RNA sequence: GAUAAAGGAAGGCAUGUUAAGUACGCAACGUCCUGUUGCAACACAUGCACUUGCACAUCCUGUGCU
Numbered sequence: 001g002a003u004a005a006a007g008g009a010a011g012g013c014a015u016g017u018u019a020a021g022u023a024c025g026c027a028a029c030g031u032c033c034u035g036u037u038g039c040a041a042c043a044c045a046u047g048c049a050c051u052u053g054c055a056c057a058u059c060c061u062g063u064g065c066u
Stems, first nucleotide, its partner, number of pairs: 012048006025039005053065004